[Rfam]
RNA sequence: CACCGGGAAGGGCCCAUGACCCGUGGCAGCGACGGGGGACCCACCUUCGGGGGCCCGGGCCAUGACGGACCGGACCUCCUCGGGGUGAAGCCGCGCAAGCGGCCGGGCACGUACCUCCCGCCCGAACCCGACAGCUCACCUCGCAGGCGUGAGAGGUACAACAC
Numbered sequence: 001c002a003c004c005g006g007g008a009a010g011g012g013c014c015c016a017u018g019a020c021c022c023g024u025g026g027c028a029g030c031g032a033c034g035g036g037g038g039a040c041c042c043a044c045c046u047u048c049g050g051g052g053g054c055c056c057g058g059g060c061c062a063u064g065a066c067g068g069a070c071c072g073g074a075c076c077u078c079c080u081c082g083g084g085g086u087g088a089a090g091c092c093g094c095g096c097a098a099g100c101g102g103c104c105g106g107g108c109a110c111g112u113a114c115c116u117c118c119c120g121c122c123c124g125a126a127c128c129c130g131a132c133a134g135c136u137c138a139c140c141u142c143g144c145a146g147g148c149g150u151g152a153g154a155g156g157u158a159c160a161a162c163a164c
Base pairs, nucleotide, nucleotide: 001031003029033143034142035141036140037139042082083129084128085127091102092101093100094099105123106122107121108120
Annotation: A member of the RNA family "c-di-AMP riboswitch aptamer (ydaO/yuaA leader)" from Luteimicrobium xylanilyticum, 164 nucleotides long. The base pairs follow the family's consensus structure. A search with the family's covariance model found it, with a score of 48 bits. NCBI's taxonomy places the organism under Bacteria, Bacillati, Actinomycetota, Micrococcales, Luteimicrobium.